[Rfam]
DUF3800-IX RNA: a 68-nucleotide RNA sequence from Methylocystis echinoides. From the family's description: Actinobacteria, Firmicutes (1 example), Nitrospirae, Proteobacteria, Verrucomicrobia (1 example). Rfam classes the family as a small RNA. The family's consensus secondary structure is taken from published work.
Nucleotides: 068
Stems, first nucleotide, its partner, number of pairs: 002063010016034003019030004036051005
Number, partner (000 for none) and nucleotide at each position: 001000c002063u003062c004061g005060c006059c007058c008057g009056g010055c011054c012000g013000a014000a015000u016034u017033g018032u019030c020029g021028c022027c023000g024000g025000a026000u027022g028021g029020c030019g031000c032018g033017c034016g035000u036051u037050c038049c039048g040047g041000c042000a043000a044000u045000c046000g047040c048039c049038g050037g051036a052000u053000a054011g055010g056009c057008c058007g059006g060005g061004c062003g063002g064000c065000c066000a067000c068000u